[Rfam]
RNA sequence: GACCGACAUCAGCGAUUCGUUUUGCGAACCGUGGCCCACCGCGAGAUAGGAACACAUCCCCAGCUCGCGCAUCUGCUGUUCGCCAAUCACCCGGGUAAUCACGUUUUUACUGUAGCUGUCGGCCAACUGGCGCGCCUGUGAAGCGAGGUAGGCGGCGUUACAGAUGUUUGGCGGCAUGUUGCCCAGAUCUUUCGC
Numbered sequence: 001g002a003c004c005g006a007c008a009u010c011a012g013c014g015a016u017u018c019g020u021u022u023u024g025c026g027a028a029c030c031g032u033g034g035c036c037c038a039c040c041g042c043g044a045g046a047u048a049g050g051a052a053c054a055c056a057u058c059c060c061c062a063g064c065u066c067g068c069g070c071a072u073c074u075g076c077u078g079u080u081c082g083c084c085a086a087u088c089a090c091c092c093g094g095g096u097a098a099u100c101a102c103g104u105u106u107u108u109a110c111u112g113u114a115g116c117u118g119u120c121g122g123c124c125a126a127c128u129g130g131c132g133c134g135c136c137u138g139u140g141a142a143g144c145g146a147g148g149u150a151g152g153c154g155g156c157g158u159u160a161c162a163g164a165u166g167u168u169u170g171g172c173g174g175c176a177u178g179u180u181g182c183c184c185a186g187a188u189c190u191u192u193c194g195c
Stems, first nucleotide, its partner, number of pairs: 005189002012032003016028005034042002050059001062077003078135002081132005087126001092122001094120004099112001103108001136163003140159002143156002167186002170183003
The family of this 195-nucleotide RNA from Citrobacter rodentium is "Yersinia sRNA 276". The family's consensus secondary structure was predicted with RNAfold.